[Rfam]
RNA: TPP riboswitch aptamer (THI element)
Organism: Candidatus Aquiluna sp. UB-MaderosW2red
RNA sequence: UGGAAGCAACACGGGAGUUUGGGUAAACCAGACUGAGAGGAAGACUAAUUUGUCUUCGACCGUCAAACUUGAUCUGGAUAAUGCCAGCGCAAGGAGACAACUCUUAAUAAAA
Numbered sequence: 001u002g003g004a005a006g007c008a009a010c011a012c013g014g015g016a017g018u019u020u021g022g023g024u025a026a027a028c029c030a031g032a033c034u035g036a037g038a039g040g041a042a043g044a045c046u047a048a049u050u051u052g053u054c055u056u057c058g059a060c061c062g063u064c065a066a067a068c069u070u071g072a073u074c075u076g077g078a079u080a081a082u083g084c085c086a087g088c089g090c091a092a093g094g095a096g097a098c099a100a101c102u103c104u105u106a107a108u109a110a111a112a
Base pairs, nucleotide, nucleotide: 010096011063012062013061014060017033018032019031020030021029040057041056042055043054044053068093069092070091071090074087075086076085077084